Rfam assigns this 193-nucleotide sequence from Fukomys damarensis to the family "Connexin-43 internal ribosome entry site (IRES)". About the family: This family represents the connexin-43 internal ribosome entry site (IRES) which allows cap independent translation during conditions such as heat shock and stress. NCBI's taxonomy places the organism under Eukaryota, Craniata, Rodentia, Bathyergidae, Fukomys.
[Rfam]
RNA sequence: AGCUUUUACCCAGUGUGAGCAAUUUUAUUUCAUUAGGGAAAGGAGUGAGGAAGGUACCAGAUAGCAGUAGUCUUUAAAAUAGAUUUGACUUUUGACUUUUGAACUUUUUCAUUUUAUUUCAUCCUCCAAGCUGUGCAGUCACUUGGCUUGCUAACUUUAUUUCUUUUAAGUGGAAGAACAGCAACUGGGUAGG
Numbered sequence: 001a002g003c004u005u006u007u008a009c010c011c012a013g014u015g016u017g018a019g020c021a022a023u024u025u026u027a028u029u030u031c032a033u034u035a036g037g038g039a040a041a042g043g044a045g046u047g048a049g050g051a052a053g054g055u056a057c058c059a060g061a062u063a064g065c066a067g068u069a070g071u072c073u074u075u076a077a078a079a080u081a082g083a084u085u086u087g088a089c090u091u092u093u094g095a096c097u098u099u100u101g102a103a104c105u106u107u108u109u110c111a112u113u114u115u116a117u118u119u120c121a122u123c124c125u126c127c128a129a130g131c132u133g134u135g136c137a138g139u140c141a142c143u144u145g146g147c148u149u150g151c152u153a154a155c156u157u158u159a160u161u162u163c164u165u166u167u168a169a170g171u172g173g174a175a176g177a178a179c180a181g182c183a184a185c186u187g188g189g190u191a192g193g
Stems, first nucleotide, its partner, number of pairs: 002020003007015003029133001033129002036126003040119003047113002050110001052108003069090004091103005142189005148184005155176003158172005